[Rfam]
RNA sequence: UUCUUGCCCACCUGGAUGUGGAUCUUAGUCAUAGUGAAAGCACAUAUGACUAGAGACACAUUCAGCUGGGCGAAAGC
Numbered sequence: 001u002u003c004u005u006g007c008c009c010a011c012c013u014g015g016a017u018g019u020g021g022a023u024c025u026u027a028g029u030c031a032u033a034g035u036g037a038a039a040g041c042a043c044a045u046a047u048g049a050c051u052a053g054a055g056a057c058a059c060a061u062u063c064a065g066c067u068g069g070g071c072g073a074a075a076g077c
Stems, first nucleotide, its partner, number of pairs: 005072005012065009023055001027051007
RNA: mir-44 microRNA precursor family